[Rfam]
RNA: Glycine riboswitch aptamer
Organism: Limnohabitans sp. 63ED37-2
RNA sequence: GCCACACACUCUGAAGAGCGCCCCCGGUUCGUCACCGGGGUCCACCGCAGGAGCAAGCCGAACAGGGUUCGGUGAAUCUCUCAGGUUUCAAACAGAGGGGGUCAU
Numbered sequence: 001g002c003c004a005c006a007c008a009c010u011c012u013g014a015a016g017a018g019c020g021c022c023c024c025c026g027g028u029u030c031g032u033c034a035c036c037g038g039g040g041u042c043c044a045c046c047g048c049a050g051g052a053g054c055a056a057g058c059c060g061a062a063c064a065g066g067g068u069u070c071g072g073u074g075a076a077u078c079u080c081u082c083a084g085g086u087u088u089c090a091a092a093c094a095g096a097g098g099g100g101g102u103c104a105u
Base pairs, nucleotide, nucleotide: 007099009097010096011095012094013093020042022040023039024038025037026036027035028034044086045085046084047082051080052079053078057073058072059071060070061069